[Rfam]
Nucleotides: 087
Base pairs, nucleotide, nucleotide: 003085004084005083007081008080009079010078013075014074015073016072017071019069020068021067022066023065024064025063026062027061028060029059030058031057032056033055034054035053036052037051038050039049040048041047
Number, partner (000 for none) and nucleotide at each position: 001000g002000u003085a004084c005083u006000c007081c008080c009079u010078c011000g012000g013075u014074c015073u016072c017071a018000u019069a020068a021067u022066g023065u024064a025063a026062g027061a028060c029059g030058u031057u032056u033055u034054u035053u036052g037051a038050c039049a040048c041047u042000a043000u044000a045000c046000u047041a048040g049039u050038g051037u052036c053035a054034a055033a056032a057031a058030g059029c060028g061027u062026c063025u064024u065023a066022u067021a068020u069019u070000a071017u072016g073015g074014g075013a076000u077000a078010g079009a080008g081007g082000g083005a084004g085003u086000a087000g
This 87-nucleotide RNA sequence from Triticum aestivum belongs to the Rfam family "MIR1120/MIR1122 microRNA precursor family". The match comes from Rfam's covariance-model search (92 bits). Its family is annotated with RISC complex and miRNA-mediated post-transcriptional gene silencing in the Gene Ontology. For this family Rfam cites "Cloning and characterization of microRNAs from wheat (Triticum aestivum L.)" (Yao et al., Genome Biol, 2007). The base pairs follow the family's consensus structure, which was predicted with RNAalifold. The organism belongs to Triticum, within Eukaryota.